[Rfam]
RNA sequence: CCAAUGAGGGAUCUGAAGGAAGCCUGCGUCAAAUUUGUCACCCAAACUUGGUGUGAACCUCCGGUAGGCCAGGCGGAAUGGGCGAGAUACCUCCGAUUAUCGAAGCCCGAAAUCCUUUCCGUAAUUCCGCAGGGUAUGAGAGGUGGGUGGGCAAUGAAAGUGUAUGAC
Numbered sequence: 001c002c003a004a005u006g007a008g009g010g011a012u013c014u015g016a017a018g019g020a021a022g023c024c025u026g027c028g029u030c031a032a033a034u035u036u037g038u039c040a041c042c043c044a045a046a047c048u049u050g051g052u053g054u055g056a057a058c059c060u061c062c063g064g065u066a067g068g069c070c071a072g073g074c075g076g077a078a079u080g081g082g083c084g085a086g087a088u089a090c091c092u093c094c095g096a097u098u099a100u101c102g103a104a105g106c107c108c109g110a111a112a113u114c115c116u117u118u119c120c121g122u123a124a125u126u127c128c129g130c131a132g133g134g135u136a137u138g139a140g141a142g143g144u145g146g147g148u149g150g151g152c153a154a155u156g157a158a159a160g161u162g163u164a165u166g167a168c
Stems, first nucleotide, its partner, number of pairs: 022168001024166001030160001035154005040148005058143004068135003073130006080108004086101004
Overview:
Shown here is a 168-nucleotide RNA from Desulfobacula toluolica, a member of the family "Group II catalytic intron D1-D4-3". The family has 406 seed sequences and 4,274 matches in Rfam 15.1. Rfam links the family to the GO term Group II intron splicing. It scores 77 bits against the family's covariance model. NCBI's taxonomy places the organism under Bacteria, Pseudomonadati, Thermodesulfobacteriota, Desulfobacterales, Desulfobacula toluolica.